c-di-AMP riboswitch aptamer (ydaO/yuaA leader): a 128-nucleotide sequence from Desulfitobacterium hafniense.
RNA sequence: ACUUAAUAUGGGCUUAAUUUCCCAAGGGGAAAACGGGGGAACCAAUUUAGGGGUGAAUCGUUUUAAACGUAGAGCAUGUUUCAGCUCGAACCCGUCAGCUAACCUCGUAAGCAUUGAAGCACAUGAGG
Numbered sequence: 001a002c003u004u005a006a007u008a009u010g011g012g013c014u015u016a017a018u019u020u021c022c023c024a025a026g027g028g029g030a031a032a033a034c035g036g037g038g039g040a041a042c043c044a045a046u047u048u049a050g051g052g053g054u055g056a057a058u059c060g061u062u063u064u065a066a067a068c069g070u071a072g073a074g075c076a077u078g079u080u081u082c083a084g085c086u087c088g089a090a091c092c093c094g095u096c097a098g099c100u101a102a103c104c105u106c107g108u109a110a111g112c113a114u115u116g117a118a119g120c121a122c123a124u125g126a127g128g
Base pairs, nucleotide, nucleotide: 012112013111014110018032019031020030033108034107035106036105037104038103043050051093052092053091059069060068061067062066072087073086074085075084
The sequence is in the family's curated seed alignment.